[Rfam]
RNA: TPP riboswitch aptamer (THI element)
RNA sequence: UAUAUCGGCGAGGGGUGCCAGUGAAGUAUCGUCCCAUGGGAAUAAAUGUACCAUGAAUAUGAUGAUCAUCUCACGGCUGAGAUUAUACCCUUUCUACCUGAUCCGGGUUAUACCGGCGGAGGGACUGCUGUUUAAUUGAAUA
Numbered sequence: 001u002a003u004a005u006c007g008g009c010g011a012g013g014g015g016u017g018c019c020a021g022u023g024a025a026g027u028a029u030c031g032u033c034c035c036a037u038g039g040g041a042a043u044a045a046a047u048g049u050a051c052c053a054u055g056a057a058u059a060u061g062a063u064g065a066u067c068a069u070c071u072c073a074c075g076g077c078u079g080a081g082a083u084u085a086u087a088c089c090c091u092u093u094c095u096a097c098c099u100g101a102u103c104c105g106g107g108u109u110a111u112a113c114c115g116g117c118g119g120a121g122g123g124a125c126u127g128c129u130g131u132u133u134a135a136u137u138g139a140a141u142a
Base pairs, nucleotide, nucleotide: 006130007129008128009127010126011091012090013089014088016085017077018076019075097122098121099120103116104115105114106113
Dot-bracket structure: .....(((((((((.((((.......................................................))).......)..)))).....(((...((((......))))...)))...)))))............